[Rfam]
Nucleotides: 102
Stems, first nucleotide, its partner, number of pairs: 001102002004099001006098002049068007
Number, partner (000 for none) and nucleotide at each position: 001102u002101a003000a004099g005000a006098g007097c008000g009000a010000u011000g012000a013000u014000g015000a016000a017000u018000u019000u020000u021000g022000a023000a024000a025000u026000u027000u028000u029000a030000u031000c032000a033000c034000a035000u036000g037000u038000c039000a040000g041000a042000c043000u044000u045000c046000a047000g048000a049068g050067a051066u052065u053064a054063u055062c056000c057000a058000a059000c060000a061000a062055g063054a064053u065052g066051g067050u068049c069000a070000a071000u072000g073000a074000g075000a076000a077000g078000u079000a080000a081000a082000u083000u084000u085000c086000a087000u088000u089000u090000u091000u092000u093000c094000u095000g096000a097007g098006c099004c100000a101002u102001g
This 102-nucleotide RNA sequence from Apium graveolens belongs to the Rfam family "Small nucleolar RNA R64/Z200 family". Rfam links the family to the GO terms nucleolus and RNA processing. Taxonomically the source falls in Apium (Eukaryota, Spermatophyta, Magnoliopsida, Apiineae). Rfam 15.1 lists 748 matches to the family in 228 species.